[Rfam]
RNA: tRNA
Organism: Pediococcus cellicola
RNA sequence: GGUUCCAUGGUCUAGUUGGUUUAGGACGCCUGCCUGUCACGCAGGAGAUCACGAGUUCGAGUCUCGUUGGAACCG
Numbered sequence: 001g002g003u004u005c006c007a008u009g010g011u012c013u014a015g016u017u018g019g020u021u022u023a024g025g026a027c028g029c030c031u032g033c034c035u036g037u038c039a040c041g042c043a044g045g046a047g048a049u050c051a052c053g054a055g056u057u058c059g060a061g062u063c064u065c066g067u068u069g070g071a072a073c074c075g
Stems, first nucleotide, its partner, number of pairs: 001074007010027004029045005051067005